RNA: Plastid-psbA-3 3UTR RNA
RNA sequence: AAGACAGAAAUACCCAAUAUCUUGCUAGAACAAGAUAUUGGGUAUUUCUGUCUUUAUU
Dot-bracket structure: ((((((((((((((....((((((......))))))....))))))))))))))....
Numbered sequence: 001a002a003g004a005c006a007g008a009a010a011u012a013c014c015c016a017a018u019a020u021c022u023u024g025c026u027a028g029a030a031c032a033a034g035a036u037a038u039u040g041g042g043u044a045u046u047u048c049u050g051u052c053u054u055u056a057u058u
Stems, first nucleotide, its partner, number of pairs: 001054014019036006